[Rfam]
RNA sequence: AGGCCAUUACAACUACUUUAGAAUUUUUCUUGCAGAUUUUCUAACUUUGGUCAGAAAACCCCA
Numbered sequence: 001a002g003g004c005c006a007u008u009a010c011a012a013c014u015a016c017u018u019u020a021g022a023a024u025u026u027u028u029c030u031u032g033c034a035g036a037u038u039u040u041c042u043a044a045c046u047u048u049g050g051u052c053a054g055a056a057a058a059c060c061c062c063a
Base pairs, nucleotide, nucleotide: 035060037058038057039056040055041054042053044051045050